[Rfam]
RNA sequence: UUAAAACAGCCUGGGGGUUGUACCCACCCCUGGGGCCCACGCGGCGCUAGUACUCUGGUACGUUAGUACCUUUGUACGCCUGUUUUCCCC
Number, nucleotide and partner (000 for none) at each position: 001u000002u000003a086004a085005a084006a083007c082008a081009g000010c034011c033012u032013g031014g030015g029016g028017g027018u026019u000020g000021u000022a000023c000024c000025c000026a018027c017028c016029c015030c014031u013032g012033g011034g010035g045036c044037c043038c000039a000040c000041g000042c000043g037044g036045c035046g079047c078048u000049a000050g077051u076052a075053c074054u000055c000056u000057g070058g069059u068060a067061c000062g000063u000064u000065a000066g000067u060068a059069c058070c057071u000072u000073u000074g053075u052076a051077c050078g047079c046080c000081u008082g007083u006084u005085u004086u003087c000088c000089c000090c000
RNA: Enterovirus 5' cloverleaf cis-acting replication element
Organism: Enterovirus fitauri